[Rfam]
RNA sequence: GUUGCUUCAUAUGGUGAGCUUCUUCAAUUGAAGUGAGGAUUGCUCUAGUUUCCGAAGCAUAGAUCAAACCCAGUAGUAUUAAACAGUUUGAUGUCAAUUUUUUUUCAUGGCAUCAAACUACCUGUCUCCUCCUACAUCG
Numbered sequence: 001g002u003u004g005c006u007u008c009a010u011a012u013g014g015u016g017a018g019c020u021u022c023u024u025c026a027a028u029u030g031a032a033g034u035g036a037g038g039a040u041u042g043c044u045c046u047a048g049u050u051u052c053c054g055a056a057g058c059a060u061a062g063a064u065c066a067a068a069c070c071c072a073g074u075a076g077u078a079u080u081a082a083a084c085a086g087u088u089u090g091a092u093g094u095c096a097a098u099u100u101u102u103u104u105u106c107a108u109g110g111c112a113u114c115a116a117a118c119u120a121c122c123u124g125u126c127u128c129c130u131c132c133u134a135c136a137u138c139g
Base pairs, nucleotide, nucleotide: 003059004058005057006056007055008054016045017044018043019042021039022038023037024036072133073132075130076129078127085119086118087117089115090114091113092112093111
Dot-bracket structure: ..((((((.......((((.((((...........))))..))))........))))))............((.((.(......(((.(((((.................))))).))).......).)).))......